Shown here is a 275-nucleotide RNA sequence from Diceros bicornis, a member of the family "RNase MRP". NCBI's taxonomy places the organism under Eukaryota, Eutheria, Rhinocerotidae, Diceros, Diceros bicornis.
RNA sequence: GUUCGCGUUGAAGGCCUGUUUCCUAGGCUACAGACGGAGGACUGGUUCCUCAUAUGCGCCUAGGGGAAAGUCCCCGGACCUCCGGCAGAGAGUGCUACGUGUGCACGCACGUAGGCCUCGCGUGCUGCUCACUACCAACUCCGCGAAGAAGCGAGCCUGCGCAGGCGGGGGCGCCGAGCGGUGUGAUGCGGCAGGCGACCCGCCGUCAGCGAUCCUAGUUACGCAGGCAGCGCGCGUCGGCGCGCUAACCACACGGGGCUCAUUCUCAGCGCGGC
Numbered sequence: 001g002u003u004c005g006c007g008u009u010g011a012a013g014g015c016c017u018g019u020u021u022c023c024u025a026g027g028c029u030a031c032a033g034a035c036g037g038a039g040g041a042c043u044g045g046u047u048c049c050u051c052a053u054a055u056g057c058g059c060c061u062a063g064g065g066g067a068a069a070g071u072c073c074c075c076g077g078a079c080c081u082c083c084g085g086c087a088g089a090g091a092g093u094g095c096u097a098c099g100u101g102u103g104c105a106c107g108c109a110c111g112u113a114g115g116c117c118u119c120g121c122g123u124g125c126u127g128c129u130c131a132c133u134a135c136c137a138a139c140u141c142c143g144c145g146a147a148g149a150a151g152c153g154a155g156c157c158u159g160c161g162c163a164g165g166c167g168g169g170g171g172c173g174c175c176g177a178g179c180g181g182u183g184u185g186a187u188g189c190g191g192c193a194g195g196c197g198a199c200c201c202g203c204c205g206u207c208a209g210c211g212a213u214c215c216u217a218g219u220u221a222c223g224c225a226g227g228c229a230g231c232g233c234g235c236g237u238c239g240g241c242g243c244g245c246u247a248a249c250c251a252c253a254c255g256g257g258g259c260u261c262a263u264u265c266u267c268a269g270c271g272c273g274g275c
Stems, first nucleotide, its partner, number of pairs: 003274009014228006022064007037051005069260002072258004084096004097112006114200002120196002123193003129186004141181004165174003230245006
The family's consensus secondary structure is taken from published work. A search with the family's covariance model found it, with a score of 193 bits.